[Rfam]
RNA: mir-26 microRNA precursor family
Organism: Esox lucius
RNA sequence: CCUGGGCCUAAUUCAAGUAAUCCAGGAUAGGUUUGUUCAAACAGCCAAAGCCUAUUCUGCAUGACUUGGUUCAGGACCAUG
Numbered sequence: 001c002c003u004g005g006g007c008c009u010a011a012u013u014c015a016a017g018u019a020a021u022c023c024a025g026g027a028u029a030g031g032u033u034u035g036u037u038c039a040a041a042c043a044g045c046c047a048a049a050g051c052c053u054a055u056u057c058u059g060c061a062u063g064a065c066u067u068g069g070u071u072c073a074g075g076a077c078c079a080u081g
Stems, first nucleotide, its partner, number of pairs: 003079003007075003011071001014068005020062002024058010